RNA sequence: AGUUGCAAAUAUUGUGAUGGCAUUACAAGUAAUCUUGCCAUCCGACAUUUGUGGUAGA
Numbered sequence: 001a002g003u004u005g006c007a008a009a010u011a012u013u014g015u016g017a018u019g020g021c022a023u024u025a026c027a028a029g030u031a032a033u034c035u036u037g038c039c040a041u042c043c044g045a046c047a048u049u050u051g052u053g054g055u056a057g058a
Base pairs, nucleotide, nucleotide: 002055003054004053005052006051007050008049009048010047012045013044014043016042017041018040019039020038021037022036025033
Record summary: A member of the RNA family "mir-7583 microRNA precursor family" from Caenorhabditis briggsae, 58 nucleotides long. Its family is annotated with RISC complex and miRNA-mediated post-transcriptional gene silencing in the Gene Ontology. The family's consensus secondary structure was predicted with RNAalifold.